[Rfam]
RNA sequence: GACGGGCCCCUUCGCAUGGUUCGGCGGUGAACCUGGUCAGGUCGGGAACGAAGCAGCCAUAGUCGUUUAGGAUCAGUGCCGGAGUAAGGCUCGUCAUC
Numbered sequence: 001g002a003c004g005g006g007c008c009c010c011u012u013c014g015c016a017u018g019g020u021u022c023g024g025c026g027g028u029g030a031a032c033c034u035g036g037u038c039a040g041g042u043c044g045g046g047a048a049c050g051a052a053g054c055a056g057c058c059a060u061a062g063u064c065g066u067u068u069a070g071g072a073u074c075a076g077u078g079c080c081g082g083a084g085u086a087a088g089g090c091u092c093g094u095c096a097u098c
Stems, first nucleotide, its partner, number of pairs: 004092005010084005015076001017075006023067006034059004042051003
A member of the RNA family "Bacterial small signal recognition particle RNA" from Bordetella sp. 02P26C-1, 98 nucleotides long.
By type it is a non-coding RNA gene.
NCBI's taxonomy places the organism under Bacteria, Pseudomonadota, Betaproteobacteria, Burkholderiales, Bordetella.
Rfam links the family to the GO terms signal recognition particle, plasma membrane targeting and SRP-dependent cotranslational protein targeting to membrane, signal sequence recognition.